[Rfam]
RNA sequence: AGAGACAAGUAGAAGCACCCGCUUCUCACCUGAUCGACGCACUAUGCAGUUGGCAGGUCAUGAAUCCUUUUGAACUUUAGGAUACGUGUGGGUGCAUUUCUAUGUACCGACACUUUUUUUAUGAC
Numbered sequence: 001a002g003a004g005a006c007a008a009g010u011a012g013a014a015g016c017a018c019c020c021g022c023u024u025c026u027c028a029c030c031u032g033a034u035c036g037a038c039g040c041a042c043u044a045u046g047c048a049g050u051u052g053g054c055a056g057g058u059c060a061u062g063a064a065u066c067c068u069u070u071u072g073a074a075c076u077u078u079a080g081g082a083u084a085c086g087u088g089u090g091g092g093u094g095c096a097u098u099u100c101u102a103u104g105u106a107c108c109g110a111c112a113c114u115u116u117u118u119u120u121a122u123g124a125c
Base pairs, nucleotide, nucleotide: 011026012025013024014023015022016021028058029057030056036051037050038049039047040046087112088111089110091108092107093106094105095104096103
RNA: Ribosomal protein L20 leader